The record is a 360-nucleotide part of an RNA from Archaeoglobus fulgidus, which matches "Archaeal large subunit ribosomal RNA" in Rfam. A reference for the family is Yusupov et al. (2001), "Crystal structure of the ribosome at 5.5 A resolution", Science. Taxonomically the source falls in Archaeoglobus fulgidus (Archaea, Archaeoglobi, Archaeoglobales, Archaeoglobus).

[Rfam]
RNA sequence: CGGAACAUUCCGGCCGAGGGAAUUCGGCAAGUUGGCCCCGUAUCUUUGGUAGAAGGGGUGCCUGCGGUUUAGCAGACCGCAGGUCGCAGUGACUAGGGGGGAGCGACUGUUUACUAAAAACACAGGGGGCUGCAAUCCGGCAACGGUUUGUACAGCCCCUGAGUCCUGCCCAGUGCGGGUACCUGAAACCAGGGUACAACCGGGCGAAGGGCCCGUAAACGGCGGGGGUAACUAUGACCCUCUUAAGGUAGCGUAAUACCUUGCCGCUUAAUUGGCGGCUUGCAUGAACGGAUUAACGACUCCCCCACUGUCCCCGGCCGGAAGCCGGCGAACCCGACAUCCCAGUGAAGAGUCUGGGGA
Numbered sequence: 001c002g003g004a005a006c007a008u009u010c011c012g013g014c015c016g017a018g019g020g021a022a023u024u025c026g027g028c029a030a031g032u033u034g035g036c037c038c039c040g041u042a043u044c045u046u047u048g049g050u051a052g053a054a055g056g057g058g059u060g061c062c063u064g065c066g067g068u069u070u071a072g073c074a075g076a077c078c079g080c081a082g083g084u085c086g087c088a089g090u091g092a093c094u095a096g097g098g099g100g101g102a103g104c105g106a107c108u109g110u111u112u113a114c115u116a117a118a119a120a121c122a123c124a125g126g127g128g129g130c131u132g133c134a135a136u137c138c139g140g141c142a143a144c145g146g147u148u149u150g151u152a153c154a155g156c157c158c159c160u161g162a163g164u165c166c167u168g169c170c171c172a173g174u175g176c177g178g179g180u181a182c183c184u185g186a187a188a189c190c191a192g193g194g195u196a197c198a199a200c201c202g203g204g205c206g207a208a209g210g211g212c213c214c215g216u217a218a219a220c221g222g223c224g225g226g227g228g229u230a231a232c233u234a235u236g237a238c239c240c241u242c243u244u245a246a247g248g249u250a251g252c253g254u255a256a257u258a259c260c261u262u263g264c265c266g267c268u269u270a271a272u273u274g275g276c277g278g279c280u281u282g283c284a285u286g287a288a289c290g291g292a293u294u295a296a297c298g299a300c301u302c303c304c305c306c307a308c309u310g311u312c313c314c315c316g317g318c319c320g321g322a323a324g325c326c327g328g329c330g331a332a333c334c335c336g337a338c339a340u341c342c343c344a345g346u347g348a349a350g351a352g353u354c355u356g357g358g359g360a
Stems, first nucleotide, its partner, number of pairs: 001327003009322008018313003035059005044049001060084009085089001097306007104298002108122003125160008133150001137146003163293004168223003173220002175216005182211003189204002192201002224242006243247001263279006341358005